[Rfam]
RNA: Burkholderia sRNA 25
RNA sequence: ACUGCUUUCCCCUAGCAGCUUUUUCUUCGGGAAAAGAUCUCCAAACCUUAUCAGCGCGGUCGUCUUGAUCGCGUUUUUUUUGC
Numbered sequence: 001a002c003u004g005c006u007u008u009c010c011c012c013u014a015g016c017a018g019c020u021u022u023u024u025c026u027u028c029g030g031g032a033a034a035a036g037a038u039c040u041c042c043a044a045a046c047c048u049u050a051u052c053a054g055c056g057c058g059g060u061c062g063u064c065u066u067g068a069u070c071g072c073g074u075u076u077u078u079u080u081u082g083c
Stems, first nucleotide, its partner, number of pairs: 002018005019036007053075009